[Rfam]
Shown here is a 43-nucleotide RNA, a member of the family "L31-Actinobacteria ribosomal protein leader". Rfam's curators put it in the seed alignment. The family's consensus secondary structure is taken from published work.
RNA sequence: CAGGUACCGGUUCACGUCAGCAUUCGCUGGCGACCCGGCGACC
Dot-bracket structure: ..(((.((((....(((((((....)))))))..))))..)))